[Rfam]
RNA sequence: GGCCCGGCACUUGCUUAGUCCCUGAUACCAGGUAGCCAACGGCGGCCACCUCCCUCACGACAAAGACGUCGC
Numbered sequence: 001g002g003c004c005c006g007g008c009a010c011u012u013g014c015u016u017a018g019u020c021c022c023u024g025a026u027a028c029c030a031g032g033u034a035g036c037c038a039a040c041g042g043c044g045g046c047c048a049c050c051u052c053c054c055u056c057a058c059g060a061c062a063a064a065g066a067c068g069u070c071g072c
Stems, first nucleotide, its partner, number of pairs: 031050003035046003
RNA: narK RNA
Organism: Ectopseudomonas mendocina